[Rfam]
RNA sequence: AGCACUAUUUUUAAACCUGUAGGUGGGGUUUCUUGCCACCAUGGGUUACGCUGUAGUGCAAAAAAAAUUCUUGGCUCUUUUGUGCACAGCUGAUCUUGUGCCAUUCAGCUGAUGCUGUUGAAAGCUAAGAAACAGAA
Dot-bracket structure: .(((((((.....((((....(((((.........)))))...)))).....)))))))........((((.((((.(.....(((((((.((...........)).)))).))).....).)))).))))......
Numbered sequence: 001a002g003c004a005c006u007a008u009u010u011u012u013a014a015a016c017c018u019g020u021a022g023g024u025g026g027g028g029u030u031u032c033u034u035g036c037c038a039c040c041a042u043g044g045g046u047u048a049c050g051c052u053g054u055a056g057u058g059c060a061a062a063a064a065a066a067a068u069u070c071u072u073g074g075c076u077c078u079u080u081u082g083u084g085c086a087c088a089g090c091u092g093a094u095c096u097u098g099u100g101c102c103a104u105u106c107a108g109c110u111g112a113u114g115c116u117g118u119u120g121a122a123a124g125c126u127a128a129g130a131a132a133c134a135g136a137a
Stems, first nucleotide, its partner, number of pairs: 002059007014047004022040005068131004073126004078121001084115003087111004092106002
Rfam assigns this 137-nucleotide sequence from Alligator mississippiensis to the family "Small nucleolar RNA SNORA46". Gene Ontology terms of the family: RNA processing and nucleolus. The family's RNA type in Rfam is H/ACA-box small nucleolar RNA. The family has 22 seed sequences and 582 matches in Rfam 15.1. Rfam describes the family as follows. ACA46 is a member of the H/ACA class of snoRNA that guide the sites of modification of uridines to pseudouridines. A search with the family's covariance model found it, with a score of 108 bits.